[Rfam]
RNA sequence: GCAAGAGAGAAACGGGUCCACAGAGAACCCCCUCUCUUCGGCGUUUCGGGGAGGAAACGCCCGCCUAGAUCGAAUGAUCGAGAAAUAGCCAGACCCGCUGCGUUUAUCCCCCGCAGCGGGUCUUGGUGUAUCUGGG
Numbered sequence: 001g002c003a004a005g006a007g008a009g010a011a012a013c014g015g016g017u018c019c020a021c022a023g024a025g026a027a028c029c030c031c032c033u034c035u036c037u038u039c040g041g042c043g044u045u046u047c048g049g050g051g052a053g054g055a056a057a058c059g060c061c062c063g064c065c066u067a068g069a070u071c072g073a074a075u076g077a078u079c080g081a082g083a084a085a086u087a088g089c090c091a092g093a094c095c096c097g098c099u100g101c102g103u104u105u106a107u108c109c110c111c112c113g114c115a116g117c118g119g120g121u122c123u124u125g126g127u128g129u130a131u132c133u134g135g136g
Stems, first nucleotide, its partner, number of pairs: 001039001003038007014030004019025001040061008065135005070081004088127004092122011
Caulobacter sRNA CrfA: a 136-nucleotide RNA from Caulobacter radicis. The pairing is the family consensus, mapped onto this sequence. The match comes from Rfam's covariance-model search (147 bits). By type it is a small RNA. Rfam 15.1 lists 41 matches to the family in 41 species.